[Rfam]
RNA sequence: GGGCUGUGAUGACAAACUUAGGACACCUUUGGAGGGCAAGCCUCAAUGAAAGGACUUUCUAUAGCCUUACUGAGCUCU
Numbered sequence: 001g002g003g004c005u006g007u008g009a010u011g012a013c014a015a016a017c018u019u020a021g022g023a024c025a026c027c028u029u030u031g032g033a034g035g036g037c038a039a040g041c042c043u044c045a046a047u048g049a050a051a052g053g054a055c056u057u058u059c060u061a062u063a064g065c066c067u068u069a070c071u072g073a074g075c076u077c078u
Stems, first nucleotide, its partner, number of pairs: 001077004
This 78-nucleotide RNA sequence from Oesophagostomum dentatum belongs to the Rfam family "Small nucleolar RNA SNORD58". About the family: snoRNA U58 is found in introns 1, 3 and 6 of the ribosomal protein RPL17 gene in humans. The source organism's lineage runs through Eukaryota, Ecdysozoa, Rhabditina, Rhabditomorpha and Oesophagostomum. A reference for the family is Galardi et al. (2002), "Purified box C/D snoRNPs are able to reproduce site-specific 2'-O-methylation of target RNA in vitro", Mol Cell Biol. By type it is a C/D-box small nucleolar RNA.